A member of the RNA family "mir-9014 microRNA precursor family" from Equus caballus, 88 nucleotides long. The base pairs follow the family's consensus structure, which was predicted with RNAalifold.

RNA sequence: GGAGCCAGAGGGAGGGGUCCCAAGCCAGCCUUAGGAAAAGAAACCUUCCACGGGAGUCUUGGAGGUUGGCGACCGUCCUAGUGACUUC
Numbered sequence: 001g002g003a004g005c006c007a008g009a010g011g012g013a014g015g016g017g018u019c020c021c022a023a024g025c026c027a028g029c030c031u032u033a034g035g036a037a038a039a040g041a042a043a044c045c046u047u048c049c050a051c052g053g054g055a056g057u058c059u060u061g062g063a064g065g066u067u068g069g070c071g072a073c074c075g076u077c078c079u080a081g082u083g084a085c086u087u088c
Base pairs, nucleotide, nucleotide: 002087003086004085006083007082010079011078012077013076015074016073018071020069021068022067023066025064029062030061038060039059040058041057044054045053046052